[Rfam]
RNA sequence: AUAGAAAUAUAGUACAGCCAUAGCAGAAACGUUCAUGUCACGGCCCCUGUCAGAUUCCAACAAAUCUGCUAAAUUCUGCU
Numbered sequence: 001a002u003a004g005a006a007a008u009a010u011a012g013u014a015c016a017g018c019c020a021u022a023g024c025a026g027a028a029a030c031g032u033u034c035a036u037g038u039c040a041c042g043g044c045c046c047c048u049g050u051c052a053g054a055u056u057c058c059a060a061c062a063a064a065u066c067u068g069c070u071a072a073a074u075u076c077u078g079c080u
Stems, first nucleotide, its partner, number of pairs: 017044003022080007031039001051068006
RNA: Mammalian CPEB3 ribozyme
Organism: Alligator sinensis